[Rfam]
RNA sequence: AUGUCUUUAUCGCUUAAUCCCCUUAACCGGGGAACGGGGGAACCAAUCGGACGGCCCGGCAGCAACUGCCGCAUGUCCACGGGGUGAAUCGCCGCAGCAGCCUGAACAGGCCGCCAUGGCGUAGGGCGACUCUUACGCCCGAAUCCGUCAGCUAACCUCGUAAGCGUAUCAAGAGAGGCAAC
Numbered sequence: 001a002u003g004u005c006u007u008u009a010u011c012g013c014u015u016a017a018u019c020c021c022c023u024u025a026a027c028c029g030g031g032g033a034a035c036g037g038g039g040g041a042a043c044c045a046a047u048c049g050g051a052c053g054g055c056c057c058g059g060c061a062g063c064a065a066c067u068g069c070c071g072c073a074u075g076u077c078c079a080c081g082g083g084g085u086g087a088a089u090c091g092c093c094g095c096a097g098c099a100g101c102c103u104g105a106a107c108a109g110g111c112c113g114c115c116a117u118g119g120c121g122u123a124g125g126g127c128g129a130c131u132c133u134u135a136c137g138c139c140c141g142a143a144u145c146c147g148u149c150a151g152c153u154a155a156c157c158u159c160g161u162a163a164g165c166g167u168a169u170c171a172a173g174a175g176a177g178g179c180a181a182c
Stems, first nucleotide, its partner, number of pairs: 011166004018033005034161006044081001082146003090121004124140004